Shown here is a 181-nucleotide sequence from Gammaproteobacteria bacterium ESL0073, a member of the family "Manganese Mn2+ riboswitch aptamer (yybP-ykoY)". A reference for the family is Dambach et al. (2015), "The ubiquitous yybP-ykoY riboswitch is a manganese-responsive regulatory element", Mol Cell.
RNA sequence: CGAACCGUCUUAGGGGAGUAGUCUCCAGUUUUACAAAACUGGGUUUGCAUCAACAUACUUGAUCAACUUGAUCAUGGUGUAAACGACCAAUUGGUUUGACAAGACCUAUGACAUGAAUAAUCUGACUUUUUGGGUGGGCAGAUUGUACGUGUCAUAGAAAAAUUGUCCCACCCUUUUGGAU
Numbered sequence: 001c002g003a004a005c006c007g008u009c010u011u012a013g014g015g016g017a018g019u020a021g022u023c024u025c026c027a028g029u030u031u032u033a034c035a036a037a038a039c040u041g042g043g044u045u046u047g048c049a050u051c052a053a054c055a056u057a058c059u060u061g062a063u064c065a066a067c068u069u070g071a072u073c074a075u076g077g078u079g080u081a082a083a084c085g086a087c088c089a090a091u092u093g094g095u096u097u098g099a100c101a102a103g104a105c106c107u108a109u110g111a112c113a114u115g116a117a118u119a120a121u122c123u124g125a126c127u128u129u130u131u132g133g134g135u136g137g138g139c140a141g142a143u144u145g146u147a148c149g150u151g152u153c154a155u156a157g158a159a160a161a162a163u164u165g166u167c168c169c170a171c172c173c174u175u176u177u178g179g180a181u
Base pairs, nucleotide, nucleotide: 026041027040028039043084044083045082046081047080048079049078050077051076052075060074061073062072063071064070085181087179088178089177090176
Dot-bracket structure: .........................(((..........))).((((((((((.......(((((.....)))))))))))))))(.((((.....................................................................................)))).)